[Rfam]
RNA sequence: CUCCUCGUUCAAAAAAUCGCAAUCGAAGCACACACACAGAAGCACAGCUUGCUGUCUUCGCAUACAAACUUAGCUUUGGGAAAAGUCCCCGGACAGCAUGCAAUUCAUAUUGCGUGCAAACGCGUCGCCGCGCCGCCAUAGACGCACUUUCGCGGUCCCCGUUCUCUGCCCAAAUCUACCACCUUCACACCACCCGUUCGCACUCCACGUUCUCAACCCAUCUCACCCCAUCUCCUUGUGCACAACAUUCUGGACAACGAUCUUUUGUGAGUCCGUUGUGUUGCUGGGUUGGUAGCGGGCUGAGCUGAGCACUAGGAGGAGGGCUGUGAAACAUGGGAGUCGGUGCUUGGGAAUAAGGUGAGCGUGGGAGAAUCUUCGUCGAGUUUGAUAGUUAUGCGAUUGUCCUCGCUGCGGAAACGUGGUGGGGUUAUCUUGAUGGGGCUUAUUCAUGAGGCGAGGA
Numbered sequence: 001c002u003c004c005u006c007g008u009u010c011a012a013a014a015a016a017u018c019g020c021a022a023u024c025g026a027a028g029c030a031c032a033c034a035c036a037c038a039g040a041a042g043c044a045c046a047g048c049u050u051g052c053u054g055u056c057u058u059c060g061c062a063u064a065c066a067a068a069c070u071u072a073g074c075u076u077u078g079g080g081a082a083a084a085g086u087c088c089c090c091g092g093a094c095a096g097c098a099u100g101c102a103a104u105u106c107a108u109a110u111u112g113c114g115u116g117c118a119a120a121c122g123c124g125u126c127g128c129c130g131c132g133c134c135g136c137c138a139u140a141g142a143c144g145c146a147c148u149u150u151c152g153c154g155g156u157c158c159c160c161g162u163u164c165u166c167u168g169c170c171c172a173a174a175u176c177u178a179c180c181a182c183c184u185u186c187a188c189a190c191c192a193c194c195c196g197u198u199c200g201c202a203c204u205c206c207a208c209g210u211u212c213u214c215a216a217c218c219c220a221u222c223u224c225a226c227c228c229c230a231u232c233u234c235c236u237u238g239u240g241c242a243c244a245a246c247a248u249u250c251u252g253g254a255c256a257a258c259g260a261u262c263u264u265u266u267g268u269g270a271g272u273c274c275g276u277u278g279u280g281u282u283g284c285u286g287g288g289u290u291g292g293u294a295g296c297g298g299g300c301u302g303a304g305c306u307g308a309g310c311a312c313u314a315g316g317a318g319g320a321g322g323g324c325u326g327u328g329a330a331a332c333a334u335g336g337g338a339g340u341c342g343g344u345g346c347u348u349g350g351g352a353a354u355a356a357g358g359u360g361a362g363c364g365u366g367g368g369a370g371a372a373u374c375u376u377c378g379u380c381g382a383g384u385u386u387g388a389u390a391g392u393u394a395u396g397c398g399a400u401u402g403u404c405c406u407c408g409c410u411g412c413g414g415a416a417a418c419g420u421g422g423u424g425g426g427g428u429u430a431u432c433u434u435g436a437u438g439g440g441g442c443u444u445a446u447u448c449a450u451g452a453g454g455c456g457a458g459g460a
Stems, first nucleotide, its partner, number of pairs: 002460007009452003015401006023079007042057001044055004083444003087441004099109001111124005220373002227368005404427009
About this RNA:
The family of this 460-nucleotide sequence from Pseudovirgaria hyperparasitica is "RNase MRP". A search with the family's covariance model found it, with a score of 83 bits. Rfam classes the family as a ribozyme. The organism belongs to Pseudovirgaria, within Eukaryota. Rfam's curators write: RNase MRP is an enzymatically active ribonucleoprotein with two distinct roles in eukaryotes. In mitochondria it plays a direct role in the initiation of mitochondrial DNA replication. In the nucleus it is involved in precursor rRNA processing, where it cleaves the internal transcribed spacer 1 between 18S and 5.8S rRNAs. Despite distinct functions, RNase MRP has been shown to be evolutionarily related to RNase P. Like eukaryotic RNase P, RNase MRP is not catalytically active without associated protein subunits.